[Rfam]
RNA sequence: GGAUGCCUGAGGGGAAGGUAGCUUCAGUACGAGAGGAACGAGCUGCCGGCGCCUCUAGUGUACCGGUUGUCUGAGAAGGCAUAGCCGGGUAGCCACGCGCCGGUCAAUAAGGCCUGAAAGCAUCUAAGGCCGAAGUGACUCCCGAAAAAGGCAUUCGCUCUUGGUCAACAUGCUGGGACUGGUGACAGUCACAGUGUGCCAGGACAAAGACAGGGGCUAGAAGACCCCGUUGAUGGACCGGGGGUGUAAGCACGAAGCUUCGGCGACGUGUUCAGCCCACCGGUACCAAUAGUCUGAGGU
Numbered sequence: 001g002g003a004u005g006c007c008u009g010a011g012g013g014g015a016a017g018g019u020a021g022c023u024u025c026a027g028u029a030c031g032a033g034a035g036g037a038a039c040g041a042g043c044u045g046c047c048g049g050c051g052c053c054u055c056u057a058g059u060g061u062a063c064c065g066g067u068u069g070u071c072u073g074a075g076a077a078g079g080c081a082u083a084g085c086c087g088g089g090u091a092g093c094c095a096c097g098c099g100c101c102g103g104u105c106a107a108u109a110a111g112g113c114c115u116g117a118a119a120g121c122a123u124c125u126a127a128g129g130c131c132g133a134a135g136u137g138a139c140u141c142c143c144g145a146a147a148a149a150g151g152c153a154u155u156c157g158c159u160c161u162u163g164g165u166c167a168a169c170a171u172g173c174u175g176g177g178a179c180u181g182g183u184g185a186c187a188g189u190c191a192c193a194g195u196g197u198g199c200c201a202g203g204a205c206a207a208a209g210a211c212a213g214g215g216g217c218u219a220g221a222a223g224a225c226c227c228c229g230u231u232g233a234u235g236g237a238c239c240g241g242g243g244g245u246g247u248a249a250g251c252a253c254g255a256a257g258c259u260u261c262g263g264c265g266a267c268g269u270g271u272u273c274a275g276c277c278c279a280c281c282g283g284u285a286c287c288a289a290u291a292g293u294c295u296g297a298g299g300u
Base pairs, nucleotide, nucleotide: 001156002155003154004153005152006151007150008149011143012142013141014140017047018046019045020044021043022042023041024040048101049100050099051098052097056095058093063088064087065086066085067084068081069080070079071078072077104138105137106136111131112130113129114128115127208295209294210293211292213228214227215226216225234288235287236286237284238283239282240281241280242278243277244276250271251270252269253268254267257264
The family of this 300-nucleotide part of an RNA from candidate division MSBL1 archaeon SCGC-AAA382A13 is "Archaeal large subunit ribosomal RNA". The organism belongs to candidate division MSBL1, within Archaea. The family is grouped with related families in Rfam's "LSU clan". The base pairs follow the family's consensus structure, which is taken from published work.